[Rfam]
This 252-nucleotide RNA sequence from Trifolium subterraneum belongs to the Rfam family "MIR2655 microRNA precursor family". The base pairs follow the family's consensus structure, which was predicted with RNAalifold. A search with the family's covariance model found it, with a score of 123 bits. The organism belongs to Trifolium, within Eukaryota.
RNA sequence: CCCUUAUCUUUUAAAAGUUUCAAGUUUGUCCUUUAUCUUUAUUUUAGGUUUCAAGUUGGUCAUUCUAGUCAAAUUUUUUACUAUUUCCGUUAAGUUUUGACACAUGGCAAACUAAUUUGGACACGUGGCACACUUGGACAGAUGACAUGUGUCCAAAUUUAACGGUAAUAGUAAAAAAAUUGAGCGGAGGGACCAACUUGAAACCUAAAAUAAAAAUAAGGGACCAACUUAAAACUUUUAAAAGAUAAGGGA
Numbered sequence: 001c002c003c004u005u006a007u008c009u010u011u012u013a014a015a016a017g018u019u020u021c022a023a024g025u026u027u028g029u030c031c032u033u034u035a036u037c038u039u040u041a042u043u044u045u046a047g048g049u050u051u052c053a054a055g056u057u058g059g060u061c062a063u064u065c066u067a068g069u070c071a072a073a074u075u076u077u078u079u080a081c082u083a084u085u086u087c088c089g090u091u092a093a094g095u096u097u098u099g100a101c102a103c104a105u106g107g108c109a110a111a112c113u114a115a116u117u118u119g120g121a122c123a124c125g126u127g128g129c130a131c132a133c134u135u136g137g138a139c140a141g142a143u144g145a146c147a148u149g150u151g152u153c154c155a156a157a158u159u160u161a162a163c164g165g166u167a168a169u170a171g172u173a174a175a176a177a178a179a180u181u182g183a184g185c186g187g188a189g190g191g192a193c194c195a196a197c198u199u200g201a202a203a204c205c206u207a208a209a210a211u212a213a214a215a216a217u218a219a220g221g222g223a224c225c226a227a228c229u230u231a232a233a234a235c236u237u238u239u240a241a242a243a244g245a246u247a248a249g250g251g252a
Stems, first nucleotide, its partner, number of pairs: 002250007023229003028224002031221006038214006045207003